[Rfam]
RNA sequence: GCUCAAUGAUGUUCUCGCAUGUAUUACCCGAAUGUCAAAUGGUGACGAAGAAACAUGUUAGCUCUAGAAUAAUACUGAGAGUAC
Numbered sequence: 001g002c003u004c005a006a007u008g009a010u011g012u013u014c015u016c017g018c019a020u021g022u023a024u025u026a027c028c029c030g031a032a033u034g035u036c037a038a039a040u041g042g043u044g045a046c047g048a049a050g051a052a053a054c055a056u057g058u059u060a061g062c063u064c065u066a067g068a069a070u071a072a073u074a075c076u077g078a079g080a081g082u083a084c
Stems, first nucleotide, its partner, number of pairs: 001082004
RNA: Small nucleolar RNA SNORD45